The family of this 99-nucleotide sequence from Digitaria exilis is "Small nucleolar RNA R30/Z108". A search with the family's covariance model found it, with a score of 90 bits. The literature on the family includes a 2002 paper in Curr Biol by Marker et al., "Experimental RNomics. Identification of 140 Candidates for Small Non-Messenger RNAs in the Plant Arabidopsis thaliana". NCBI's taxonomy places the organism under Eukaryota, Streptophyta, Streptophytina, Embryophyta, Digitaria. It is annotated as a C/D-box small nucleolar RNA. snoR30 is a C/D box small nucleolar RNA which acts as a methylation guide for 18S ribosomal RNA in plants. Its Rfam clan is "SNORD100 clan".

RNA sequence: GGUUGUUGCAACGAGGACAAUCAAGCUCCCUCUUCUGAAGGUAUUGAUGACUCUUGCUGGCAGAAUCGAACCAAUAAACCUAUUGCCACCACUGAGUAA
Numbered sequence: 001g002g003u004u005g006u007u008g009c010a011a012c013g014a015g016g017a018c019a020a021u022c023a024a025g026c027u028c029c030c031u032c033u034u035c036u037g038a039a040g041g042u043a044u045u046g047a048u049g050a051c052u053c054u055u056g057c058u059g060g061c062a063g064a065a066u067c068g069a070a071c072c073a074a075u076a077a078a079c080c081u082a083u084u085g086c087c088a089c090c091a092c093u094g095a096g097u098a099a
Base pairs, nucleotide, nucleotide: 006099007098008097009096